Shown here is a 113-nucleotide RNA from Thermosinus carboxydivorans, a member of the family "TPP riboswitch aptamer (THI element)". Rfam 15.1 lists 16,130 matches to the family in 8,693 species. The base pairs follow the family's consensus structure, which is taken from published work.
RNA sequence: AUAUUGUGCUAGGGGGGCCGGAAAAGGCCGGCUGAGAUAUAGAUCCGCUAAAUCUAUGACCCUGUAACCUGAUCUGGGUAAUGCCAGCGUAGGGAAAGCUCCGAAACUUGUGG
Dot-bracket structure: .....(.(((((((..(((((......)))))......(((((.........)))))..))))....((((..((((......))))..))))...))).)............